[Rfam]
RNA sequence: GCGAUGAGCUGAAUUGUGUAAGUCGAAAAACAUGCCGGAAGGCUAAAUGCACGAUGUGGCGUGCAGUUUUUCGCCUCAAUACGCAGGAGACGUCUUUAUAGGCGUCUC
Numbered sequence: 001g002c003g004a005u006g007a008g009c010u011g012a013a014u015u016g017u018g019u020a021a022g023u024c025g026a027a028a029a030a031c032a033u034g035c036c037g038g039a040a041g042g043c044u045a046a047a048u049g050c051a052c053g054a055u056g057u058g059g060c061g062u063g064c065a066g067u068u069u070u071u072c073g074c075c076u077c078a079a080u081a082c083g084c085a086g087g088a089g090a091c092g093u094c095u096u097u098a099u100a101g102g103c104g105u106c107u108c
Stems, first nucleotide, its partner, number of pairs: 014079003018075001024073008034043002048065002051062003087108009
RNA: BsrF
Organism: Bacillus sp. AFS040349